tRNA: a 74-nucleotide RNA sequence from Sinocyclocheilus rhinocerous.
[Rfam]
Nucleotides: 074
Stems, first nucleotide, its partner, number of pairs: 001073007010026004028044003050066005
Number, partner (000 for none) and nucleotide at each position: 001073g002072g003071u004070g005069c006068c007067g008000u009000g010026g011025c012024u013023u014000a015000g016000u017000u018000g019000g020000u021000u022000a023013a024012a025011g026010c027000g028044c029043c030042u031000a032000a033000u034000u035000a036000g037000u038000a039000a040000a041000c042030a043029g044028g045000a046000g047000a048000u049000c050066c051065u052064g053063g054062g055000u056000u057000u058000g059000a060000a061000u062054c063053c064052c065051a066050g067007c068006g069005g070004u071003g072002c073001c074000u